[Rfam]
Nucleotides: 113
Base pairs, nucleotide, nucleotide: 001113002112004110005109006108007107008106013043014042015041016040017039021032022031023030026079027078028077029076044071045070046069047068049067050066051064052063053062054061075105080102081101082100083099085097
Number, partner (000 for none) and nucleotide at each position: 001113g002112a003000u004110u005109u006108a007107u008106a009000c010000a011000g012000a013043a014042g015041c016040g017039g018000c019000g020000a021032g022031a023030g024000a025000a026079c027078a028077g029076g030023c031022u032021c033000c034000c035000u036000g037000a038000c039017c040016c041015g042014c043013u044071g045070g046069c047068a048000a049067c050066c051064u052063u053062c054061g055000a056000c057000c058000g059000c060000g061054c062053g063052a064051a065000a066050g067049g068047u069046g070045c071044c072000a073000a074000u075105u076029c077028c078027u079026g080102c081101c082100c083099g084000a085097c086000c087000a088000g089000c090000u091000u092000u093000u094000g095000c096000u097085g098000g099083c100082g101081g102080g103000g104000c105075a106008u107007a108006u109005a110004a111000c112002u113001c
The record is a 113-nucleotide sequence from Hymenobacter taeanensis, which matches "SAM riboswitch aptamer (S box leader)" in Rfam. The organism belongs to Hymenobacter, within Bacteria.